The record is a 142-nucleotide RNA from Branchiostoma belcheri, which matches "Small Cajal body specific RNA 8" in Rfam. The family has 22 seed sequences and 955 matches in Rfam 15.1. The match comes from Rfam's covariance-model search (58 bits). About the family: scaRNAs are a specific class of small nuclear RNAs which localise to the Cajal bodies and guide the modification of RNA polymerase II transcribed spliceosomal RNAs U1, U2, U4, U5 and U12. U92 belong to the H/ACA box class of guide RNAs as it has the predicted hairpin-hinge-hairpin-tail structure, conserved H/ACA-box motifs and is found associated with GAR1.
RNA sequence: UGGGGAGUUCAGAUACCUAGCCAAACGUAGACAUGUUUGUGUUGGCACUGUGGCUUCCCAAAAGUAGCCCCACCUGGCAUGCCCUCUGAUGACUGCAGUUAGUGAAGAGAAAUCACUGCAGACAGAUACGGGGCAAACAAUC
Numbered sequence: 001u002g003g004g005g006a007g008u009u010c011a012g013a014u015a016c017c018u019a020g021c022c023a024a025a026c027g028u029a030g031a032c033a034u035g036u037u038u039g040u041g042u043u044g045g046c047a048c049u050g051u052g053g054c055u056u057c058c059c060a061a062a063a064g065u066a067g068c069c070c071c072a073c074c075u076g077g078c079a080u081g082c083c084c085u086c087u088g089a090u091g092a093c094u095g096c097a098g099u100u101a102g103u104g105a106a107g108a109g110a111a112a113u114c115a116c117u118g119c120a121g122a123c124a125g126a127u128a129c130g131g132g133g134c135a136a137a138c139a140a141u142c
Base pairs, nucleotide, nucleotide: 002059003058004057005056006055007054017045018044019043020042023038024037025036026035080135081134082133083132084131085130093121094120095119098116099115101113